This 71-nucleotide RNA sequence belongs to the Rfam family "Small nucleolar RNA SNORD56". A reference for the family is Galardi et al. (2002), "Purified box C/D snoRNPs are able to reproduce site-specific 2'-O-methylation of target RNA in vitro", Mol Cell Biol. It is one of the family's seed sequences. The family's consensus secondary structure was predicted with PFOLD.
RNA sequence: CUACAAAGAUAGCAACACUUUUCAUCAACAGCAGUUCACCUAGAGAGAGUCGACACUUUUUGUCUGAGUGA
Numbered sequence: 001c002u003a004c005a006a007a008g009a010u011a012g013c014a015a016c017a018c019u020u021u022u023c024a025u026c027a028a029c030a031g032c033a034g035u036u037c038a039c040c041u042a043g044a045g046a047g048a049g050u051c052g053a054c055a056c057u058u059u060u061u062g063u064c065u066g067a068g069u070g071a
Stems, first nucleotide, its partner, number of pairs: 002070003008026003